[Rfam]
RNA sequence: UCCACCGCGAGGUGGAAUCUGAAGGAAGCUGGAGGCAAAUGCACGAGCCAAGGUACACGAACUGGAUUUGAGGCAGGGCUAGUCGGAUGAGUCACCACUACAUGACGAAAUCCAAAGUCGCCAAGGGCUACCCCUGUAAACUCCAGUGGUUGCGGGCAGAAAGAUGACGUU
Numbered sequence: 001u002c003c004a005c006c007g008c009g010a011g012g013u014g015g016a017a018u019c020u021g022a023a024g025g026a027a028g029c030u031g032g033a034g035g036c037a038a039a040u041g042c043a044c045g046a047g048c049c050a051a052g053g054u055a056c057a058c059g060a061a062c063u064g065g066a067u068u069u070g071a072g073g074c075a076g077g078g079c080u081a082g083u084c085g086g087a088u089g090a091g092u093c094a095c096c097a098c099u100a101c102a103u104g105a106c107g108a109a110a111u112c113c114a115a116a117g118u119c120g121c122c123a124a125g126g127g128c129u130a131c132c133c134c135u136g137u138a139a140a141c142u143c144c145a146g147u148g149g150u151u152g153c154g155g156g157c158a159g160a161a162a163g164a165u166g167a168c169g170u171u
Stems, first nucleotide, its partner, number of pairs: 001016006028171001030169002036163001040158003044154002046151005062146005067140001073137003077133002080130004085113004091106004
The family of this 171-nucleotide sequence from Paenibacillus tyrphae is "Group II catalytic intron D1-D4-3".
Its family is annotated with Group II intron splicing in the Gene Ontology.
A search with the family's covariance model found it, with a score of 127 bits.
For this family Rfam cites "The ins and outs of group II introns" (Bonen and Vogel, Trends Genet, 2001).